[Rfam]
RNA sequence: GCUUUCCUGCGGUGUUCGACUACGGUUCUAAUUUCCUUGAACCUAGCUUAACCUUCGGUCGCCAGCCACGAAGCGCCUGUUGUGAGCAUUCCUUCGUUGAAUGCACCUGAUGGCGCACGGCCGGUGGCCCCUUGAACCUCCGGGUUCAGGAUAUGAACCGACCGGCACUCGCGGGAAGCCC
Numbered sequence: 001g002c003u004u005u006c007c008u009g010c011g012g013u014g015u016u017c018g019a020c021u022a023c024g025g026u027u028c029u030a031a032u033u034u035c036c037u038u039g040a041a042c043c044u045a046g047c048u049u050a051a052c053c054u055u056c057g058g059u060c061g062c063c064a065g066c067c068a069c070g071a072a073g074c075g076c077c078u079g080u081u082g083u084g085a086g087c088a089u090u091c092c093u094u095c096g097u098u099g100a101a102u103g104c105a106c107c108u109g110a111u112g113g114c115g116c117a118c119g120g121c122c123g124g125u126g127g128c129c130c131c132u133u134g135a136a137c138c139u140c141c142g143g144g145u146u147c148a149g150g151a152u153a154u155g156a157a158c159c160g161a162c163c164g165g166c167a168c169u170c171g172c173g174g175g176a177a178g179c180c181c
Stems, first nucleotide, its partner, number of pairs: 003178009012168004017164002034151003038148006057129003061125003065121002073116005082106002087103005
Dot-bracket structure: ..(((((((((((((.((...............(((.((((((.............(((.(((.((......(((((....((...(((((.......))))).)).....)))))...)).))).))).............)))))))))...........)))))).)))))))))...
6S / SsrS RNA: a 181-nucleotide RNA from Silvimonas terrae. For this family Rfam cites "6S RNA in Rhodobacter sphaeroides: 6S RNA and pRNA transcript levels peak in late exponential phase and gene deletion causes a high salt stress phenotype" (Elkina et al., RNA Biol, 2017). Pairs were carried over by alignment from the consensus structure, which is taken from published work. Rfam's curators write: E. coli 6S RNA was the first non coding RNA to be sequenced, but its function was unknown until recently. It consists of 184 nucleotides that fold into an extended hairpin structure with a large single-stranded internal bulge. The 6S RNA specifically associates with RNA polymerase holoenzyme containing the sigma70 specificity factor. This interaction represses expression from a sigma70-dependent promoter during stationary phase. 6S RNA homologs have recently been identified in most bacterial genomes. Many Gram-positive species have two copies of 6S RNA. In Bacillus subtilis, both copies appear to interact with RNA polymerase holoenzyme containing the housekeeping sigma factor and be expressed during different stages of growth. In many proteobacteria, 6S RNA may be processed from a transcript encoding homologs of the E. coli YgfA protein which is a putative 5-formyltetrahydrofolate cycloligase activity. Lineage of the source: Bacteria > Betaproteobacteria > Neisseriales > Chitinibacteraceae > Silvimonas.